[Rfam]
RNA: RT-17 RNA
RNA sequence: UACCGUAUUUCUAAAUAAAAAAAUAACUAAAUGGACUGUUCUUGGUAAGUUGAAAUAAAGUUUAUCAGGUUGAUAAGUCAGAAGUUUGUGUUGCAUACAA
Numbered sequence: 001u002a003c004c005g006u007a008u009u010u011c012u013a014a015a016u017a018a019a020a021a022a023a024u025a026a027c028u029a030a031a032u033g034g035a036c037u038g039u040u041c042u043u044g045g046u047a048a049g050u051u052g053a054a055a056u057a058a059a060g061u062u063u064a065u066c067a068g069g070u071u072g073a074u075a076a077g078u079c080a081g082a083a084g085u086u087u088g089u090g091u092u093g094c095a096u097a098c099a100a
Stems, first nucleotide, its partner, number of pairs: 006017004041077002048071001051067003